[Rfam]
Shown here is a 92-nucleotide RNA sequence from Prunus avium, a member of the family "MIR6288 microRNA precursor family". The family has 3 seed sequences and 293 matches in Rfam 15.1. The match comes from Rfam's covariance-model search (88 bits). Its family is annotated with RISC complex and miRNA-mediated post-transcriptional gene silencing in the Gene Ontology.
RNA sequence: UCAAAAUUAGCCACUUGUUAUUUUCUAAUUGGUUCUUAAAAAUUUUUAACAUACUAAGAACCAAUUAGAAAAUGACAAGUGGCUAAUUUUGA
Numbered sequence: 001u002c003a004a005a006a007u008u009a010g011c012c013a014c015u016u017g018u019u020a021u022u023u024u025c026u027a028a029u030u031g032g033u034u035c036u037u038a039a040a041a042a043u044u045u046u047u048a049a050c051a052u053a054c055u056a057a058g059a060a061c062c063a064a065u066u067a068g069a070a071a072a073u074g075a076c077a078a079g080u081g082g083c084u085a086a087u088u089u090u091g092a
Stems, first nucleotide, its partner, number of pairs: 002091037